The record is a 60-nucleotide sequence, which matches "DUF2815 RNA" in Rfam.
Pairs were carried over by alignment from the consensus structure, which is taken from published work.
It is annotated as a small RNA.

RNA sequence: AGGGUAGACGAGCUGGCCCCUAUUGAAGUCCAGUUCUAACGUUUAAUAAGGUAUAUCAUG
Dot-bracket structure: [[[[.....(((((((.]]]]........)))))))........................